[Rfam]
This 126-nucleotide RNA from Digitaria exilis belongs to the Rfam family "mir-172 microRNA precursor family".
The family has 11 seed sequences and 2,076 matches in Rfam 15.1.
A search with the family's covariance model found it, with a score of 81 bits.
RNA sequence: GUGUUUGCGGGCGUGGCAUCAUCAAGAUUCACAUCGGUUCGACCUUGGACCACUGAUUUGGUGGUCUUUAAUUUGGGGUUCGGAGGAGAUGCAUGGGAAUCUUGAUGAUGCUGCAUCCGCAGACAA
Numbered sequence: 001g002u003g004u005u006u007g008c009g010g011g012c013g014u015g016g017c018a019u020c021a022u023c024a025a026g027a028u029u030c031a032c033a034u035c036g037g038u039u040c041g042a043c044c045u046u047g048g049a050c051c052a053c054u055g056a057u058u059u060g061g062u063g064g065u066c067u068u069u070a071a072u073u074u075g076g077g078g079u080u081c082g083g084a085g086g087a088g089a090u091g092c093a094u095g096g097g098a099a100u101c102u103u104g105a106u107g108a109u110g111c112u113g114c115a116u117c118c119g120c121a122g123a124c125a126a
Base pairs, nucleotide, nucleotide: 010117011116013114014113015112016111017110018109019108020107021106022105023104024103025102026101027100028099029098030097032095033094